[Rfam]
RNA sequence: UGUCAAGUACUUGACGUGCAACGAACGGUUAGCUACGGGAGGAGGAAACUACGUUUGGUCGCACUGGUGUACCGGUUGUGUGAGGGAACGCGAAUGCCGGGUAGCCACGCGACACGGGCGUAAGGAGGCUGGAACGCAUCUAAGCUUCGAAAACCCACAUGGGAAAAGAAAGCUACCGUUGAGGUCACUCGGUAGAAGGACGAGUUUUCGAAGACUCGGGGAUGUACGCACGGAGGCAACGAGGUGUUGGAGUCCACGAGCACUAACAGACGAAG
Numbered sequence: 001u002g003u004c005a006a007g008u009a010c011u012u013g014a015c016g017u018g019c020a021a022c023g024a025a026c027g028g029u030u031a032g033c034u035a036c037g038g039g040a041g042g043a044g045g046a047a048a049c050u051a052c053g054u055u056u057g058g059u060c061g062c063a064c065u066g067g068u069g070u071a072c073c074g075g076u077u078g079u080g081u082g083a084g085g086g087a088a089c090g091c092g093a094a095u096g097c098c099g100g101g102u103a104g105c106c107a108c109g110c111g112a113c114a115c116g117g118g119c120g121u122a123a124g125g126a127g128g129c130u131g132g133a134a135c136g137c138a139u140c141u142a143a144g145c146u147u148c149g150a151a152a153a154c155c156c157a158c159a160u161g162g163g164a165a166a167a168g169a170a171a172g173c174u175a176c177c178g179u180u181g182a183g184g185u186c187a188c189u190c191g192g193u194a195g196a197a198g199g200a201c202g203a204g205u206u207u208u209c210g211a212a213g214a215c216u217c218g219g220g221g222a223u224g225u226a227c228g229c230a231c232g233g234a235g236g237c238a239a240c241g242a243g244g245u246g247u248u249g250g251a252g253u254c255c256a257c258g259a260g261c262a263c264u265a266a267c268a269g270a271c272g273a274a275g
Base pairs, nucleotide, nucleotide: 006174007173010172011171012170015161016160017159018158022057023056024055025054026053027052058113059112060111061110062109065107066106067105072100073099074098075097076096077092078091079090080089081088116156117155118154124148125147128145129144130143184271185270186269187205188204189203190202191201212264213263215260216259217258218257220255221254222253228247229246230245231244235240
RNA: Archaeal large subunit ribosomal RNA, nucleotides 2864 to 3138
Organism: Halorubrum sp. Ib24